The record is a 126-nucleotide RNA sequence from Pipistrellus kuhlii, which matches "Small Cajal body specific RNA 24" in Rfam. A search with the family's covariance model found it, with a score of 135 bits. Pairs were carried over by alignment from the consensus structure, which was predicted with RNAfold. The family has 23 seed sequences and 689 matches in Rfam 15.1. scaRNAs are a specific class of small nuclear RNAs which localise to the Cajal bodies and guide the modification of RNA polymerase II transcribed spliceosomal RNAs U1, U2, U4, U5 and U12. ACA12 belongs to the H/ACA box class of guide RNAs as it has the predicted hairpin-hinge-hairpin-tail structure,the conserved H/ACA-box motifs and is found associated with GAR1. Clan: SCARNA3 clan. The family's RNA type in Rfam is small Cajal body RNA. NCBI's taxonomy places the organism under Eukaryota, Mammalia, Theria, Boreoeutheria, Pipistrellus. On this family, see Darzacq et al., EMBO J 2002: "Cajal body-specific small nuclear RNAs: a novel class of 2'-O-methylation and pseudouridylation guide RNAs".
RNA sequence: UGGACAUUUACUUUUAUUCACUUUCUUCUUACGGUGAGGAAAACUGUAAGUGUCCUAGAGAAAUACAGUAGCUUUCUGUUCACCCUUUGCAAGUAAAAAGGGUGGAUCGUUCCACUACUGACAUGU
Numbered sequence: 001u002g003g004a005c006a007u008u009u010a011c012u013u014u015u016a017u018u019c020a021c022u023u024u025c026u027u028c029u030u031a032c033g034g035u036g037a038g039g040a041a042a043a044c045u046g047u048a049a050g051u052g053u054c055c056u057a058g059a060g061a062a063a064u065a066c067a068g069u070a071g072c073u074u075u076c077u078g079u080u081c082a083c084c085c086u087u088u089g090c091a092a093g094u095a096a097a098a099a100g101g102g103u104g105g106a107u108c109g110u111u112c113c114a115c116u117a118c119u120g121a122c123a124u125g126u
Stems, first nucleotide, its partner, number of pairs: 002055010020045001022043002024040005066120006085100004